[Rfam]
RNA: S4-Flavobacteria ribosomal protein leader
RNA sequence: UGUUUUCGAAGGAAAAGAUCUGAAUUCAAAACA
Numbered sequence: 001u002g003u004u005u006u007c008g009a010a011g012g013a014a015a016a017g018a019u020c021u022g023a024a025u026u027c028a029a030a031a032c033a
Base pairs, nucleotide, nucleotide: 001033002032003031004030005029006028008027010021011020012019
Dot-bracket structure: ((((((.(.(((......))).....)))))))